RNA sequence: GAACGUGGAAGCAAGAUGUCGGUUCGCUUUCGGUGUCUUGUGGAGUUCUAUGGAGGGUUGUGUGAUAACCACAUAGCGAAUAGGCUUAGGCUGAAAGAAAACACAUUAC
Numbered sequence: 001g002a003a004c005g006u007g008g009a010a011g012c013a014a015g016a017u018g019u020c021g022g023u024u025c026g027c028u029u030u031c032g033g034u035g036u037c038u039u040g041u042g043g044a045g046u047u048c049u050a051u052g053g054a055g056g057g058u059u060g061u062g063u064g065a066u067a068a069c070c071a072c073a074u075a076g077c078g079a080a081u082a083g084g085c086u087u088a089g090g091c092u093g094a095a096a097g098a099a100a101a102c103a104c105a106u107u108a109c
Stems, first nucleotide, its partner, number of pairs: 001048004011041011024079004062104003083092003
Background
The record is a 109-nucleotide RNA sequence, which matches "drum RNA" in Rfam. It is one of the family's seed sequences. Rfam describes the family as follows. Firmicutes, Bacteroidetes (1 example), Proteobacteria (2 examples), Spirochaetes (2 examples). The family's RNA type in Rfam is small RNA.